[Rfam]
The family of this 84-nucleotide RNA sequence from Hordeum vulgare is "mir-877 microRNA precursor family".
RNA sequence: GAAGAGAAGAAGAGGAGGAGGAGGAGGAGGAGGAGGAGAAGGCCAAGGACCUUCUAGUCCUUCUCCUCCUCCUCCUUCUCCUCC
Numbered sequence: 001g002a003a004g005a006g007a008a009g010a011a012g013a014g015g016a017g018g019a020g021g022a023g024g025a026g027g028a029g030g031a032g033g034a035g036g037a038g039a040a041g042g043c044c045a046a047g048g049a050c051c052u053u054c055u056a057g058u059c060c061u062u063c064u065c066c067u068c069c070u071c072c073u074c075c076u077u078c079u080c081c082u083c084c
Stems, first nucleotide, its partner, number of pairs: 004080006012074002015071001017069010028058001037055006043048001
Gene Ontology terms of the family: miRNA-mediated post-transcriptional gene silencing and RISC complex.